[Rfam]
RNA: Makes More Granules Regulator RNA (mmgR)
Organism: Fulvimarina pelagi
RNA sequence: AGCUGUCGCCUCACGGGGCGUUUCCUCCCUAGACUUUGACCGCGUUGGUUUUCCGUCGCGGUUUCUUUUUGCCUUCU
Numbered sequence: 001a002g003c004u005g006u007c008g009c010c011u012c013a014c015g016g017g018g019c020g021u022u023u024c025c026u027c028c029c030u031a032g033a034c035u036u037u038g039a040c041c042g043c044g045u046u047g048g049u050u051u052u053c054c055g056u057c058g059c060g061g062u063u064u065c066u067u068u069u070u071g072c073c074u075u076c077u
Stems, first nucleotide, its partner, number of pairs: 008019004039062006046055002